[Rfam]
RNA sequence: UUUGACCGAGCCGAGCCACAGUGGCUGUUCCUGCGCACGUCCCUGGCCGUAGGUGGCGAGCAGGGCCUGGGCUUC
Numbered sequence: 001u002u003u004g005a006c007c008g009a010g011c012c013g014a015g016c017c018a019c020a021g022u023g024g025c026u027g028u029u030c031c032u033g034c035g036c037a038c039g040u041c042c043c044u045g046g047c048c049g050u051a052g053g054u055g056g057c058g059a060g061c062a063g064g065g066c067c068u069g070g071g072c073u074u075c
Base pairs, nucleotide, nucleotide: 014026015025016024017023031071032070038065043060044059047056048055049054
This 75-nucleotide RNA from Streptomyces cyaneogriseus belongs to the Rfam family "ASpks TB sRNA". It scores 74 bits against the family's covariance model.